Overview: The record is a 265-nucleotide RNA from a Candidatus Zixiibacteriota bacterium, which matches "Bacterial large signal recognition particle RNA" in Rfam. Rfam describes the family as follows. The signal recognition particle (SRP) is a universally conserved ribonucleoprotein involved in the co-translational targeting of proteins to membranes. A reference for the family is Rosenblad et al. (2003), "SRPDB: Signal Recognition Particle Database", Nucleic Acids Res. Lineage of the source: Bacteria > Pseudomonadati > Candidatus Zixiibacteriota.
RNA sequence: GUGUGCUAGACGGGGAAGUAGCGGCGCCCUGUAGCCCGGAAUCCGCUCCACCGGGGUCGAAUCCCACCAGCGGACCGAACCAUUUUUUGUGUCGAUAAAGCAAGCGGCGUCGAAGGUCAGGCCCUGUACAAUGGCGACGCACCGAAUCCCGCCAGGACCGGAAGGUAGCAACGGUAGGUGAUGCUCGGUAUGUGUUGCGGGAUCGCCGGACUGGAGCCGGCUACUUUGGAAACCUUGAACUGGAGGGACAAUGGUGGGUGCACAC
Numbered sequence: 001g002u003g004u005g006c007u008a009g010a011c012g013g014g015g016a017a018g019u020a021g022c023g024g025c026g027c028c029c030u031g032u033a034g035c036c037c038g039g040a041a042u043c044c045g046c047u048c049c050a051c052c053g054g055g056g057u058c059g060a061a062u063c064c065c066a067c068c069a070g071c072g073g074a075c076c077g078a079a080c081c082a083u084u085u086u087u088u089g090u091g092u093c094g095a096u097a098a099a100g101c102a103a104g105c106g107g108c109g110u111c112g113a114a115g116g117u118c119a120g121g122c123c124c125u126g127u128a129c130a131a132u133g134g135c136g137a138c139g140c141a142c143c144g145a146a147u148c149c150c151g152c153c154a155g156g157a158c159c160g161g162a163a164g165g166u167a168g169c170a171a172c173g174g175u176a177g178g179u180g181a182u183g184c185u186c187g188g189u190a191u192g193u194g195u196u197g198c199g200g201g202a203u204c205g206c207c208g209g210a211c212u213g214g215a216g217c218c219g220g221c222u223a224c225u226u227u228g229g230a231a232a233c234c235u236u237g238a239a240c241u242g243g244a245g246g247g248a249c250a251a252u253g254g255u256g257g258g259u260g261c262a263c264a265c
Stems, first nucleotide, its partner, number of pairs: 001265006009058003012030004019023001035055005063258007072249001075246002080243003084239003092231001096228005104221002106218003115212004120207003123201006129192002132190002135187002140180004149174003157166003